Group II catalytic intron D1-D4-6: a 221-nucleotide RNA sequence from Apophysomyces sp. BC1034. The organism belongs to Apophysomyces, within Eukaryota. A search with the family's covariance model found it, with a score of 189 bits. Pairs were carried over by alignment from the consensus structure.
[Rfam]
RNA sequence: AGAGUCCACUACGAUGAAGGCCUAGCGAGCCACAUCGCCCCCGAGCCGUGCGUGGGCAUCCGCGAGGAUAUCGGCGAAGCGUCGGCAGGGGAAUGUGCAGGCCAGCCAUGGAGCCACGAAAUGGUUUAUAUUCCGGAUGCCGACGCGCUCCAGUACGCGGAAGGCAACAUGAGCAGGCAUGAUAUCGCGAGUGCCUGUCGAUCCGGCGUGGUCGUAGAACC
Numbered sequence: 001a002g003a004g005u006c007c008a009c010u011a012c013g014a015u016g017a018a019g020g021c022c023u024a025g026c027g028a029g030c031c032a033c034a035u036c037g038c039c040c041c042c043g044a045g046c047c048g049u050g051c052g053u054g055g056g057c058a059u060c061c062g063c064g065a066g067g068a069u070a071u072c073g074g075c076g077a078a079g080c081g082u083c084g085g086c087a088g089g090g091g092a093a094u095g096u097g098c099a100g101g102c103c104a105g106c107c108a109u110g111g112a113g114c115c116a117c118g119a120a121a122u123g124g125u126u127u128a129u130a131u132u133c134c135g136g137a138u139g140c141c142g143a144c145g146c147g148c149u150c151c152a153g154u155a156c157g158c159g160g161a162a163g164g165c166a167a168c169a170u171g172a173g174c175a176g177g178c179a180u181g182a183u184a185u186c187g188c189g190a191g192u193g194c195c196u197g198u199c200g201a202u203c204c205g206g207c208g209u210g211g212u213c214g215u216a217g218a219a220c221c
Base pairs, nucleotide, nucleotide: 012037013036014035015034016033019031020030021029023190025188026187039091040090041089042088045086046085047084048083049081050080051076052075053074055072056071058069059068060067061066110215111213113212114211115210116209117208118207133206134205135204136203137202138201139165140164141163144159145158146157147156170200171199173198174197175196176195177194178193179192180191

The literature on the family includes a 2001 paper in Trends Genet by Bonen and Vogel, "The ins and outs of group II introns".